[Rfam]
RNA sequence: CAUUUAUAUUUACACCCAUGCAAUCGCCCGAAUAGGGCGGACAACGCAACAGCUUAAUCGGA
Numbered sequence: 001c002a003u004u005u006a007u008a009u010u011u012a013c014a015c016c017c018a019u020g021c022a023a024u025c026g027c028c029c030g031a032a033u034a035g036g037g038c039g040g041a042c043a044a045c046g047c048a049a050c051a052g053c054u055u056a057a058u059c060g061g062a
Base pairs, nucleotide, nucleotide: 024040025039026038027037028036029035
RNA: porB RNA